Record summary: This 98-nucleotide RNA from Actinotalea ferrariae belongs to the Rfam family "Glycine riboswitch aptamer". A search with the family's covariance model found it, with a score of 62 bits.
RNA sequence: CGAACCGUGACGGGAGAGCCCGCUGCCCAGCCAGGCAGCCGGCGCCGAAGGAGCAACCUCCCCGGGAAUCUCUCAGGCCCACGUACCGCCACGGUGAG
Numbered sequence: 001c002g003a004a005c006c007g008u009g010a011c012g013g014g015a016g017a018g019c020c021c022g023c024u025g026c027c028c029a030g031c032c033a034g035g036c037a038g039c040c041g042g043c044g045c046c047g048a049a050g051g052a053g054c055a056a057c058c059u060c061c062c063c064g065g066g067a068a069u070c071u072c073u074c075a076g077g078c079c080c081a082c083g084u085a086c087c088g089c090c091a092c093g094g095u096g097a098g
Base pairs, nucleotide, nucleotide: 006093007092008091009090011088012087013086020042021041022040044078045077046076047074048073051072052071053070057065058064
Source information: The pairing is the family consensus, mapped onto this sequence.